[Rfam]
Nucleotides: 356
Base pairs, nucleotide, nucleotide: 001352002351004350005349006348007347008346009345010344011342012319013318014317015316016315017314018313020038021037022036023035024034025033026032043340044339045338047337048336049335050334051333052222053221054220055219059255060254061253062252064218065217066216067215068214069083070082071081072080073079084098085096086095087094088093099213100212104211105210106207107206108205122154123153125149126148129145130144131143132142133141134140162180163179164178165177166176167175182202183200184199185198186197187196188195189194226276227275228274229273236267237266238265239264240263241262246260247259248258250256283302285300286299287298288297290295
Number, partner (000 for none) and nucleotide at each position: 001352u002351a003000u004350g005349c006348g007347g008346g009345c010344c011342g012319g013318a014317c015316g016315g017314u018313c019000g020038c021037g022036u023035g024034g025033g026032a027000u028000a029000u030000g031000c032026u033025c034024c035023c036022a037021u038020g039000a040000g041000g042000a043340a044339a045338g046000u047337c048336c049335g050334g051333g052222c053221u054220u055219c056000u057000a058000g059255a060254g061253g062252c063000a064218g065217g066216a067215u068214g069083c070082c071081g072080g073079c074000u075000a076000a077000c078000g079073g080072c081071c082070g083069g084098g085096c086095g087094g088093g089000g090000a091000a092000a093088c094087c095086c096085g097000a098084c099213g100212g101000a102000a103000a104211g105210u106207g107206c108205u109000g110000c111000a112000g113000a114000a115000a116000a117000g118000a119000a120000a121000a122154c123153u124000c125149c126148c127000a128000c129145u130144g131143g132142c133141g134140c135000g136000a137000a138000u139000c140134g141133c142132g143131u144130u145129a146000a147000g148126g149125g150000a151000a152000a153123a154122g155000c156000u157000g158000a159000g160000a161000a162180g163179g164178u165177g166176c167175g168000g169000u170000a171000a172000g173000a174000g175167c176166g177165c178164a179163c180162c181000a182202g183200c184199a185198c186197g187196c188195u189194g190000g191000c192000a193000a194189c195188a196187g197186c198185g199184u200183g201000g202182c203000u204000u205108g206107g207106u208000a209000a210105a211104c212100c213099c214068c215067a216066u217065c218064c219055g220054a221053a222052g223000c224000a225000a226276g227275g228274g229273c230000g231000a232000a233000u234000a235000g236267g237266c238265a239264u240263g241262c242000a243000a244000c245000a246260c247259g248258g249000c250256g251000c252062g253061c254060c255059u256250c257000u258248c259247c260246g261000u262241g263240c264239a265238u266237g267236c268000g269000g270000g271000u272000a273229g274228c275227c276226u277000g278000c279000u280000c281000g282000a283302g284000a285300c286299g287298u288297g289000c290295g291000g292000u293000a294000a295290c296000a297288c298287a299286c300285g301000c302283c303000c304000a305000a306000g307000a308000u309000a310000a311000a312000u313018g314017g315016c316015c317014g318013u319012c320000u321000u322000c323000g324000a325000a326000g327000a328000c329000a330000g331000a332000a333051c334050c335049c336048g337047g338045c339044u340043u341000a342011c343000a344010g345009g346008c347007c348006c349005g350004c351002u352001a353000c354000g355000g356000c
The record is a 356-nucleotide RNA from Slackia piriformis, which matches "Bacterial RNase P class A" in Rfam. About the family: Ribonuclease P (RNase P) is a ubiquitous endoribonuclease, found in archaea, bacteria and eukarya as well as chloroplasts and mitochondria. It scores 279 bits against the family's covariance model.